[Rfam]
Source information: This 88-nucleotide RNA from Anopheles gambiae belongs to the Rfam family "mir-276 microRNA precursor family". The organism belongs to gambiae species complex, within Eukaryota. The literature on the family includes a 2010 paper in BMC Genomics by Skalsky et al., "Identification of microRNAs expressed in two mosquito vectors, Aedes albopictus and Culex quinquefasciatus".
RNA sequence: GGUGACUGCCAUCAGCGAGGUAUAGAGUUCCUACGGUAAUCGAUUGAAACUUUGUAGGAACUUCAUACCGUGCUCUUGGAUAGCCGUU
Numbered sequence: 001g002g003u004g005a006c007u008g009c010c011a012u013c014a015g016c017g018a019g020g021u022a023u024a025g026a027g028u029u030c031c032u033a034c035g036g037u038a039a040u041c042g043a044u045u046g047a048a049a050c051u052u053u054g055u056a057g058g059a060a061c062u063u064c065a066u067a068c069c070g071u072g073c074u075c076u077u078g079g080a081u082a083g084c085c086g087u088u
Base pairs, nucleotide, nucleotide: 009079010078011077014074015073016072017071019069020068021067022066023065025063026062027061028060029059030058031057032056033055034054